[Rfam]
RNA: Guanidine-II riboswitch aptamer (mini-ykkC)
RNA sequence: CGGCGAGGACGACCUCGCGGCCAUCCUCUACACCUCCGGCACGACCGG
Numbered sequence: 001c002g003g004c005g006a007g008g009a010c011g012a013c014c015u016c017g018c019g020g021c022c023a024u025c026c027u028c029u030a031c032a033c034c035u036c037c038g039g040c041a042c043g044a045c046c047g048g
Stems, first nucleotide, its partner, number of pairs: 001020001003018006036048004